Shown here is a 123-nucleotide RNA from Chrysodeixis includens, a member of the family "Potassium channel RNA editing signal". It scores 60 bits against the family's covariance model. Taxonomically the source falls in Chrysodeixis (Eukaryota, Pancrustacea, Neoptera, Eumetabola).
[Rfam]
RNA sequence: CAGUGUUUUGAUGAUAUGUUUUUGUAUAGGCCGGUGGGAGUGUGGGGCAAGAUCGUUGGCUCGCUCUGCGCUAUCGCCGGUGUGCUCACCAUCGCAUUACCGGUACCCGUCAUCGUGUCAAAC
Numbered sequence: 001c002a003g004u005g006u007u008u009u010g011a012u013g014a015u016a017u018g019u020u021u022u023u024g025u026a027u028a029g030g031c032c033g034g035u036g037g038g039a040g041u042g043u044g045g046g047g048c049a050a051g052a053u054c055g056u057u058g059g060c061u062c063g064c065u066c067u068g069c070g071c072u073a074u075c076g077c078c079g080g081u082g083u084g085c086u087c088a089c090c091a092u093c094g095c096a097u098u099a100c101c102g103g104u105a106c107c108c109g110u111c112a113u114c115g116u117g118u119c120a121a122a123c
Base pairs, nucleotide, nucleotide: 004120005119007117009115010114011113013111014110015109018106019105021103046086047085048084049083058072059071060070
Dot-bracket structure: ...((.(.(((.(((..((.(........................((((........(((.........)))..........))))................).))..))).))).).))...